[Rfam]
The family of this 128-nucleotide RNA sequence from Caenorhabditis nigoni is "Caenorhabditis snoRNA ceN101". Rfam classes the family as an H/ACA-box small nucleolar RNA. The literature on the family includes a 2007 paper in BMC Mol Biol by Jia et al., "Systematic identification of non-coding RNA 2,2,7-trimethylguanosine cap structures in Caenorhabditis elegans". The base pairs follow the family's consensus structure, which was predicted with RNAalifold. Lineage of the source: Eukaryota > Protostomia > Ecdysozoa > Chromadorea > Caenorhabditis.
RNA sequence: UUCCUCACUUAUAAGCCGGGGGACUAGCCGUAUGCUAUGUUCACUAGUAAAACGUGAGGAAAAUUAUAGAGACAACCAGACACCGUGCAAAUUUUGAUAUGUUCGGUCACUAUGUGUGUCCCACAAUA
Number, nucleotide and partner (000 for none) at each position: 001u000002u060003c059004c058005u057006c056007a055008c054009u000010u000011a000012u000013a000014a000015g048016c047017c000018g000019g044020g000021g042022g041023a040024c039025u037026a036027g035028c034029c000030g000031u000032a000033u000034g028035c027036u026037a025038u000039g024040u023041u022042c021043a000044c019045u000046a000047g016048u015049a000050a000051a000052a000053c000054g008055u007056g006057a005058g004059g003060a002061a000062a000063a000064u000065u000066a000067u000068a000069g122070a000071g120072a119073c118074a117075a000076c000077c114078a113079g000080a111081c000082a107083c106084c105085g104086u000087g102088c101089a100090a000091a098092u097093u000094u000095u000096g000097a092098u091099a000100u089101g088102u087103u000104c085105g084106g083107u082108c000109a000110c000111u080112a000113u078114g077115u000116g000117u074118g073119u072120c071121c000122c069123a000124c000125a000126a000127u000128a000